[Rfam]
RNA sequence: GGUUUAAUUACCCAAGUUUGCGGUAAUUGAAUAUUUUAGCUCAGAGUUUUAGCUUCUGUGGCUUUACAGCAAAAUUUUGAAACGUUCCACAAAAUUGUGGGAAAAA
Numbered sequence: 001g002g003u004u005u006a007a008u009u010a011c012c013c014a015a016g017u018u019u020g021c022g023g024u025a026a027u028u029g030a031a032u033a034u035u036u037u038a039g040c041u042c043a044g045a046g047u048u049u050u051a052g053c054u055u056c057u058g059u060g061g062c063u064u065u066a067c068a069g070c071a072a073a074a075u076u077u078u079g080a081a082a083c084g085u086u087c088c089a090c091a092a093a094a095u096u097g098u099g100g101g102a103a104a105a106a
Stems, first nucleotide, its partner, number of pairs: 003031010034069002037066001039062003085102006
Record summary:
The record is a 106-nucleotide sequence from Sylvietta virens, which matches "SL1 RNA" in Rfam. The source organism's lineage runs through Eukaryota, Bilateria, Deuterostomia, Neognathae and Sylvietta. The match comes from Rfam's covariance-model search (86 bits). Rfam describes the family as follows. This family represents the SL1 RNA. SL1 is commonly located in the spacer region between 5S-rRNA genes where it is involved in trans-splicing. Trans-splicing is a form of RNA processing. The base pairs follow the family's consensus structure, which is taken from published work. A reference for the family is Dassanayake et al. (2001), "Trans-spliced leader RNA, 5S-rRNA genes and novel variant orphan spliced-leader of the lymphatic filarial nematode Wuchereria bancrofti, and a sensitive polymerase chain reaction based detection assay", Gene.